Rfam assigns this 117-nucleotide RNA sequence from Massilia forsythiae to the family "ALIL pseudoknot". The organism belongs to Massilia, within Bacteria. The family's RNA type in Rfam is cis-regulatory element.
RNA sequence: CGCUUUUUUCGCCCAGGCGGAGCUCGACCGCCGCUUCAAAUCGUAAGAGCGUUCAUCGACAAGCACCGCCAUGCCUACGGCGUCGAGCCGAUUUGCAGUGUCAUGCAGGUCGCGCCG
Number, nucleotide and partner (000 for none) at each position: 001c000002g000003c000004u000005u000006u000007u000008u000009u000010c000011g000012c000013c000014c000015a000016g032017g031018c030019g029020g028021a000022g000023c000024u000025c000026g000027a000028c020029c019030g018031c017032c016033g000034c000035u000036u000037c000038a000039a000040a000041u000042c000043g000044u000045a000046a000047g000048a000049g000050c000051g000052u000053u000054c000055a000056u000057c000058g000059a000060c000061a000062a000063g000064c000065a000066c000067c000068g000069c000070c000071a000072u000073g000074c000075c000076u000077a000078c117079g116080g115081c114082g113083u000084c000085g000086a000087g000088c000089c112090g111091a000092u109093u108094u107095g106096c105097a104098g000099u000100g000101u000102c000103a000104u097105g096106c095107a094108g093109g092110u000111c090112g089113c082114g081115c080116c079117g078